[Rfam]
RNA sequence: UCACUAUAAGGGAAUGAAUGUCUCCCUCAGUUUCAACUGAAACCGCAUAAGAAUGCUGAUGACUUCUACAAGCUU
Number, nucleotide and partner (000 for none) at each position: 001u000002c000003a000004c000005u000006a000007u000008a000009a000010g026011g025012g024013a023014a000015u000016g066017a065018a064019u000020g063021u062022c061023u013024c012025c011026c010027u000028c000029a000030g000031u000032u000033u000034c000035a000036a000037c000038u000039g000040a000041a000042a000043c000044c000045g056046c055047a054048u053049a000050a000051g000052a000053a048054u047055g046056c045057u000058g000059a000060u000061g022062a021063c020064u018065u017066c016067u000068a000069c000070a000071a000072g000073c000074u000075u000
Rfam assigns this 75-nucleotide RNA from Atopobacter sp. AH10 to the family "Fluoride riboswitch aptamer (crcB RNA motif)". The base pairs follow the family's consensus structure, which is taken from published work.